Rfam assigns this 180-nucleotide sequence from Caryophanon tenue to the family "Lysine riboswitch aptamer". Gene Ontology term of the family: lysine biosynthetic process. The family's consensus secondary structure is taken from published work.

RNA sequence: AAGAGAGGUAGAGGUCGCGAAUUUGAAAAAGUACAGCACUUGAAGGUCGAGCCUAGUGAAAGUGUUGGAAAGGUCAUAUUCGCCGAAGCGUGAAACAAACAUCGAUAUGUUACGCGCUGGGGCUGGGGCUGAAGAAGACCAGAACUGGCACAUAGAAAUAUGUGUUGUGCUAUCUUUUUU
Numbered sequence: 001a002a003g004a005g006a007g008g009u010a011g012a013g014g015u016c017g018c019g020a021a022u023u024u025g026a027a028a029a030a031g032u033a034c035a036g037c038a039c040u041u042g043a044a045g046g047u048c049g050a051g052c053c054u055a056g057u058g059a060a061a062g063u064g065u066u067g068g069a070a071a072g073g074u075c076a077u078a079u080u081c082g083c084c085g086a087a088g089c090g091u092g093a094a095a096c097a098a099a100c101a102u103c104g105a106u107a108u109g110u111u112a113c114g115c116g117c118u119g120g121g122g123c124u125g126g127g128g129c130u131g132a133a134g135a136a137g138a139c140c141a142g143a144a145c146u147g148g149c150a151c152a153u154a155g156a157a158a159u160a161u162g163u164g165u166u167g168u169g170c171u172a173u174c175u176u177u178u179u180u
Stems, first nucleotide, its partner, number of pairs: 006175006017083006024076002034067008087118006094111004119146002123142003127139001129137002148165007